A member of the RNA family "Eukaryotic large subunit ribosomal RNA" from Tetrapisispora phaffii, 402 nucleotides of a longer RNA.

[Rfam]
RNA sequence: GAAGGUUAUCGCAAUAGUAAUUGAACUUAGUACGAGAGGAACAGUUCAUUCAGAUAAUUGGUUUUUGCGGCUGUCUGAUCAGGCAUUGCCGCGAAGCUACCAUCUGCUGGAUUAUGGCUGAACGCCUCUAAGUCAGAAUCCAUGCUAGAAAGCGAUGAUUGUUGCUGCACCAUAUUUAGAUGGAUACGAAUAAGGCGUCCUUGUGGCGUCGCUGGACCAUAGAAGGCCUGCGGGGGUGCGUUUAGCGGAAAGGCUUUGCGUGCUUGCGGGCGAAUAGCAAUGUUAUUUGUGGUGUGGAUAAAUCAUUUGUAAACGACUUAGAUGUACAACGGGGUAUUGUAAGCAGUAGAGUAGCCUUGUUGUUACGAUCUGCUGAGAUUAAGCCUCAGUUGUCUGAUUUGU
Numbered sequence: 001g002a003a004g005g006u007u008a009u010c011g012c013a014a015u016a017g018u019a020a021u022u023g024a025a026c027u028u029a030g031u032a033c034g035a036g037a038g039g040a041a042c043a044g045u046u047c048a049u050u051c052a053g054a055u056a057a058u059u060g061g062u063u064u065u066u067g068c069g070g071c072u073g074u075c076u077g078a079u080c081a082g083g084c085a086u087u088g089c090c091g092c093g094a095a096g097c098u099a100c101c102a103u104c105u106g107c108u109g110g111a112u113u114a115u116g117g118c119u120g121a122a123c124g125c126c127u128c129u130a131a132g133u134c135a136g137a138a139u140c141c142a143u144g145c146u147a148g149a150a151a152g153c154g155a156u157g158a159u160u161g162u163u164g165c166u167g168c169a170c171c172a173u174a175u176u177u178a179g180a181u182g183g184a185u186a187c188g189a190a191u192a193a194g195g196c197g198u199c200c201u202u203g204u205g206g207c208g209u210c211g212c213u214g215g216a217c218c219a220u221a222g223a224a225g226g227c228c229u230g231c232g233g234g235g236g237u238g239c240g241u242u243u244a245g246c247g248g249a250a251a252g253g254c255u256u257u258g259c260g261u262g263c264u265u266g267c268g269g270g271c272g273a274a275u276a277g278c279a280a281u282g283u284u285a286u287u288u289g290u291g292g293u294g295u296g297g298a299u300a301a302a303u304c305a306u307u308u309g310u311a312a313a314c315g316a317c318u319u320a321g322a323u324g325u326a327c328a329a330c331g332g333g334g335u336a337u338u339g340u341a342a343g344c345a346g347u348a349g350a351g352u353a354g355c356c357u358u359g360u361u362g363u364u365a366c367g368a369u370c371u372g373c374u375g376a377g378a379u380u381a382a383g384c385c386u387c388a389g390u391u392g393u394c395u396g397a398u399u400u401g402u
Base pairs, nucleotide, nucleotide: 005159006158007157008156009155010154011153012152015147016146017145018144020050022048023047024046025045026044027043051106052105053104054103055102059099060098061097066093067092068091069090070089072085073084074083075082076081108142109141110140115135116134117133118132119131166296167295168294169293170292171291172290173289174288300400301399302398303397304396306320309317326393327392328391329390330389332386333385334384336379337378343373344372345371346370348369351366352365353364354363355362
For this family Rfam cites "Crystal structure of the ribosome at 5.5 A resolution" (Yusupov et al., Science, 2001).